RNA sequence: AACUAAGCGACAGAAAGGCUGAUGGGUGGACAAUGCGUAACUAAUCUUAUUUUCUUCAUUUGAAAUGGAUAUUUCAAAUCACGUGAAAUAGGAUUAGUCUGCCCACUUAUAAAACUGUCGAGCUAUUCAUUUAUCGAAAUGGCUUAUUUAAGGUAGGCAAAUAUCGGCUAAUCCUUCCAAGAAAUUUUUGGGAGGAUUUUUUA
Numbered sequence: 001a002a003c004u005a006a007g008c009g010a011c012a013g014a015a016a017g018g019c020u021g022a023u024g025g026g027u028g029g030a031c032a033a034u035g036c037g038u039a040a041c042u043a044a045u046c047u048u049a050u051u052u053u054c055u056u057c058a059u060u061u062g063a064a065a066u067g068g069a070u071a072u073u074u075c076a077a078a079u080c081a082c083g084u085g086a087a088a089u090a091g092g093a094u095u096a097g098u099c100u101g102c103c104c105a106c107u108u109a110u111a112a113a114a115c116u117g118u119c120g121a122g123c124u125a126u127u128c129a130u131u132u133a134u135c136g137a138a139a140u141g142g143c144u145u146a147u148u149u150a151a152g153g154u155a156g157g158c159a160a161a162u163a164u165c166g167g168c169u170a171a172u173c174c175u176u177c178c179a180a181g182a183a184a185u186u187u188u189u190g191g192g193a194g195g196a197u198u199u200u201u202u203a
Base pairs, nucleotide, nucleotide: 016108017107018106023105024104025103026102029099030098031097042096043095044094045093046092047091048090049089050088051087052086053085058079059078060077061076062075063074064073065072066071117148122143123142124141125140126139127138170198171197172196173195174194175193176192177191178190179189180188